A member of the RNA family "MIR535 microRNA precursor family" from Manihot esculenta, 96 nucleotides long.
The family's consensus secondary structure was predicted with RNAalifold.
The source organism's lineage runs through Eukaryota, Viridiplantae, Euphyllophyta, rosids and Manihot.
The literature on the family includes a 2010 paper in Nucleic Acids Res by Zeng et al., "Conservation and divergence of microRNAs and their functions in Euphorbiaceous plants".
Gene Ontology terms of the family: RISC complex and miRNA-mediated post-transcriptional gene silencing.
[Rfam]
RNA sequence: AUCAUUCGUUGACAACGAGAGAGAGCACGGUUGUCAGCAUUUCAUGCAAGGGACAUGACUGUUUACAAGCGUGCUGUCUAUCGUUGUCAUAAGAAG
Dot-bracket structure: .........(((((.((..((...(((((.((((..............................)))).)))))...))..)).))))).......